[Rfam]
RNA: FuFi-1 RNA
Organism: Pelotomaculum schinkii
RNA sequence: ACUGUUAGCGACGGGGGUUGAUUUGGCCGGGCCACAGCAGCCAAAGUAAUAGUCUACCUCAAGAAACUAGGGAAGGGACCCUUAGUGACCAACCUUUUGGAUAACUCAGAAGAUACCAUCUUUUGAGCCCAAAAGGAGUCUGCAGGGUAUGUUGGGGUAAAAAAGCGUGGGGCAUAGCCAAGGGGAGUCCCUUUUCCCUUGGCUAUUG
Numbered sequence: 001a002c003u004g005u006u007a008g009c010g011a012c013g014g015g016g017g018u019u020g021a022u023u024u025g026g027c028c029g030g031g032c033c034a035c036a037g038c039a040g041c042c043a044a045a046g047u048a049a050u051a052g053u054c055u056a057c058c059u060c061a062a063g064a065a066a067c068u069a070g071g072g073a074a075g076g077g078a079c080c081c082u083u084a085g086u087g088a089c090c091a092a093c094c095u096u097u098u099g100g101a102u103a104a105c106u107c108a109g110a111a112g113a114u115a116c117c118a119u120c121u122u123u124u125g126a127g128c129c130c131a132a133a134a135g136g137a138g139u140c141u142g143c144a145g146g147g148u149a150u151g152u153u154g155g156g157g158u159a160a161a162a163a164a165g166c167g168u169g170g171g172g173c174a175u176a177g178c179c180a181a182g183g184g185g186a187g188u189c190c191c192u193u194u195u196c197c198c199u200u201g202g203c204u205a206u207u208g
Stems, first nucleotide, its partner, number of pairs: 001053007025042003029038001032170004054151001055149005066086007073193007087140003174206013